A member of the RNA family "Bacillus sRNA ncr1015" from Paenibacillus sp. IHBB 10380, 118 nucleotides long. The match comes from Rfam's covariance-model search (91 bits). The base pairs follow the family's consensus structure, which is taken from published work. Taxonomically the source falls in Paenibacillus (Bacteria, Bacillota, Bacilli, Caryophanales).
RNA sequence: UUGUAAGGUAGAUAAUUAUGUCCAUCAACAUUUUCAAAGUCGUGAUCCGAUUAUAUCAUCGAGUCUGUUUAUAUGCAAUAUACAAGAAUCUGAUAAAAAUUAUCAGGUUCUUUUUUGA
Numbered sequence: 001u002u003g004u005a006a007g008g009u010a011g012a013u014a015a016u017u018a019u020g021u022c023c024a025u026c027a028a029c030a031u032u033u034u035c036a037a038a039g040u041c042g043u044g045a046u047c048c049g050a051u052u053a054u055a056u057c058a059u060c061g062a063g064u065c066u067g068u069u070u071a072u073a074u075g076c077a078a079u080a081u082a083c084a085a086g087a088a089u090c091u092g093a094u095a096a097a098a099a100u101u102a103u104c105a106g107g108u109u110c111u112u113u114u115u116u117g118a
Base pairs, nucleotide, nucleotide: 033071036068038064040062041061042060082114084112085111086110087109088108089107090106091105092104093103